[Rfam]
Rfam assigns this 110-nucleotide sequence from Melghirimyces thermohalophilus to the family "TPP riboswitch aptamer (THI element)". Rfam describes the family as follows. Vitamin B(1) in its active form thiamin pyrophosphate (TPP) is an essential coenzyme that is synthesised by coupling of pyrimidine and thiazole moieties in bacteria.
RNA sequence: CUGCAUAUCUACGGGAGCUUGGAGGAGCCAGGCUGAGAGGGCGGGAGUUCUACGCCGACCGUAAACCUGAUCUGGGUAAUGCCAGCGUAGGGAACAGGGAUUUUUGUGAU
Numbered sequence: 001c002u003g004c005a006u007a008u009c010u011a012c013g014g015g016a017g018c019u020u021g022g023a024g025g026a027g028c029c030a031g032g033c034u035g036a037g038a039g040g041g042c043g044g045g046a047g048u049u050c051u052a053c054g055c056c057g058a059c060c061g062u063a064a065a066c067c068u069g070a071u072c073u074g075g076g077u078a079a080u081g082c083c084a085g086c087g088u089a090g091g092g093a094a095c096a097g098g099g100a101u102u103u104u105u106g107u108g109a110u
Base pairs, nucleotide, nucleotide: 006098008096010094011062012061013060014059017033018032019031020030021029040056041055042054043053066091067090068089069088072085073084074083075082